[Rfam]
RNA: Bacterial RNase P class A
RNA sequence: CCAGACGGCCGGGCGGUCGCGGCGGGGGCUUGCUCCUGUCGAGGAAAGUCCGGGCUCCACGGUGAAAAGGCGGCGGGUAACGCCCGCCCGGGGCGACCCGAGGGACAGCGCCACAGAAAGCAAACCGCCUGGGCUUCGGCUCAGGGAAGGGUGAAAGGGUGGGGUAAGAGCCCACCGCGUCGGCGGCAACGUCGACGGCAUGGCAAGCCCCGCCUGGAGCAAGACCAAAUAGGGACAUCGCGCGGGGUUCGCUCUGCAGGGUUCACCGCCCCAGAUGUCCGGGUAGGUCGCGAGAGCCGUCCAGCAAUGGCCGGCCCAGAGGAAUGAUCGUCGCCGCUUUCGAGCGGAACAGAACCCGGCUUACAGGCCGUCUGGCGUU
Numbered sequence: 001c002c003a004g005a006c007g008g009c010c011g012g013g014c015g016g017u018c019g020c021g022g023c024g025g026g027g028g029c030u031u032g033c034u035c036c037u038g039u040c041g042a043g044g045a046a047a048g049u050c051c052g053g054g055c056u057c058c059a060c061g062g063u064g065a066a067a068a069g070g071c072g073g074c075g076g077g078u079a080a081c082g083c084c085c086g087c088c089c090g091g092g093g094c095g096a097c098c099c100g101a102g103g104g105a106c107a108g109c110g111c112c113a114c115a116g117a118a119a120g121c122a123a124a125c126c127g128c129c130u131g132g133g134c135u136u137c138g139g140c141u142c143a144g145g146g147a148a149g150g151g152u153g154a155a156a157g158g159g160u161g162g163g164g165u166a167a168g169a170g171c172c173c174a175c176c177g178c179g180u181c182g183g184c185g186g187c188a189a190c191g192u193c194g195a196c197g198g199c200a201u202g203g204c205a206a207g208c209c210c211c212g213c214c215u216g217g218a219g220c221a222a223g224a225c226c227a228a229a230u231a232g233g234g235a236c237a238u239c240g241c242g243c244g245g246g247g248u249u250c251g252c253u254c255u256g257c258a259g260g261g262u263u264c265a266c267c268g269c270c271c272c273a274g275a276u277g278u279c280c281g282g283g284u285a286g287g288u289c290g291c292g293a294g295a296g297c298c299g300u301c302c303a304g305c306a307a308u309g310g311c312c313g314g315c316c317c318a319g320a321g322g323a324a325u326g327a328u329c330g331u332c333g334c335c336g337c338u339u340u341c342g343a344g345c346g347g348a349a350c351a352g353a354a355c356c357c358g359g360c361u362u363a364c365a366g367g368c369c370g371u372c373u374g375g376c377g378u379u
Base pairs, nucleotide, nucleotide: 001375002374003373004372005371006370007369008368009367010366011364012332013331014330015329016328017327018326020041021040022039023038024037025036026035027034028033046362047361048360050359051358052357053356054355055219056218057217058216064266068215069214070213071212072211073087074086075085076084077083088102089100090099091098092097103210104209108208109207110204111203112202125150126149128145129144130143131142132141133140134139158176159175160174161173162172163171177199178197179196180195181194182193183192184191185190223289224288225287226286233280234279235278236277237276238275259271260270261269262268296315297314298313299312301310302309303308